The record is a 106-nucleotide sequence from Glacieibacterium arshaanense, which matches "Glycine riboswitch aptamer" in Rfam.
[Rfam]
RNA sequence: UAGCGACAUUCUGGAAAGCGGGGCCGCAAGGCUCCCACCGAUGGGGUAAGCGCCAGUUUGGGAACCGGCGUCAAAACUCUCAGGUCCAAGUGACAGACGGGGGCAC
Numbered sequence: 001u002a003g004c005g006a007c008a009u010u011c012u013g014g015a016a017a018g019c020g021g022g023g024c025c026g027c028a029a030g031g032c033u034c035c036c037a038c039c040g041a042u043g044g045g046g047u048a049a050g051c052g053c054c055a056g057u058u059u060g061g062g063a064a065c066c067g068g069c070g071u072c073a074a075a076a077c078u079c080u081c082a083g084g085u086c087c088a089a090g091u092g093a094c095a096g097a098c099g100g101g102g103g104c105a106c
Stems, first nucleotide, its partner, number of pairs: 007100001010097004020035004037085003040081002044079003050072001
This family represents the bacterial glycine riboswitch.